[Rfam]
RNA sequence: ACCCUUGAGAAAGGUCCAACCUCAUAUGUCCUGUAUUGAUUAAGGUGGGAUGUAUGUGGUCAGACCUAUCCCAGAGGU
Number, nucleotide and partner (000 for none) at each position: 001a078002c077003c000004c000005u074006u073007g072008a000009g070010a069011a000012a067013g066014g065015u064016c063017c000018a000019a060020c059021c058022u000023c056024a055025u054026a053027u052028g051029u000030c049031c048032u047033g000034u000035a000036u000037u000038g000039a000040u000041u000042a000043a000044g000045g000046u000047g032048g031049g030050a000051u028052g027053u026054a025055u024056g023057u000058g021059g020060u019061c000062a000063g016064a015065c014066c013067u012068a000069u010070c009071c000072c007073a006074g005075a000076g000077g002078u001

mir-2188 microRNA precursor family: a 78-nucleotide RNA sequence from Callorhinchus milii. Rfam links the family to the GO terms RISC complex and miRNA-mediated post-transcriptional gene silencing.